RNA sequence: CAUCAAUUUCUAAACUCGAGAGGGCCUUCCAUAAGACCCCGCACUCACAAUUUUUGAGAACCCUGAUCUGCCGGUCAGGGUA
Numbered sequence: 001c002a003u004c005a006a007u008u009u010c011u012a013a014a015c016u017c018g019a020g021a022g023g024g025c026c027u028u029c030c031a032u033a034a035g036a037c038c039c040c041g042c043a044c045u046c047a048c049a050a051u052u053u054u055u056g057a058g059a060a061c062c063c064u065g066a067u068c069u070g071c072c073g074g075u076c077a078g079g080g081u082a
Base pairs, nucleotide, nucleotide: 022039023038024037026035027034028033060081061080062079063078064077065076066075067074068073
SmY spliceosomal RNA: an 82-nucleotide sequence. Rfam classes the family as a spliceosomal small nuclear RNA. The match comes from Rfam's covariance-model search (53 bits). Pairs were carried over by alignment from the consensus structure, which is taken from published work. The family has 61 seed sequences and 408 matches in Rfam 15.1.